Small nucleolar RNA SNORA55: a 131-nucleotide RNA from Charadrius vociferus. The organism belongs to Charadrius, within Eukaryota. The match comes from Rfam's covariance-model search (79 bits). Rfam's curators write: ACA55 is a member of the H/ACA class of snoRNA that guide the sites of modification of uridines to pseudouridines. By type it is an H/ACA-box small nucleolar RNA.

[Rfam]
RNA sequence: GAUCACAUCUUUCCUGCUUCUUGCGAUACAGUGCUGGACUGGGGACUCAUGAUGCGACAGGGAAGCAGAGGAAAUCCAGACAAGCUCCCUUUCACCACAGUGGGACUUGUCUCUACGCCUUUGCAACACUU
Number, nucleotide and partner (000 for none) at each position: 001g000002a053003u052004c051005a000006c000007a000008u000009c000010u000011u045012u044013c043014c042015u041016g040017c000018u000019u037020c036021u000022u000023g000024c000025g000026a000027u000028a000029c000030a000031g000032u000033g000034c000035u000036g020037g019038a000039c000040u016041g015042g014043g013044g012045a011046c000047u000048c000049a000050u000051g004052a003053u002054g000055c000056g000057a000058c000059a000060g000061g000062g000063a000064a000065g124066c123067a122068g121069a120070g119071g000072a000073a000074a000075u000076c000077c000078a112079g111080a110081c109082a108083a107084g106085c000086u000087c000088c000089c000090u000091u000092u103093c102094a101095c000096c000097a000098c000099a000100g000101u094102g093103g092104g000105a000106c084107u083108u082109g081110u080111c079112u078113c000114u000115a000116c000117g000118c000119c070120u069121u068122u067123g066124c065125a000126a000127c000128a000129c000130u000131u000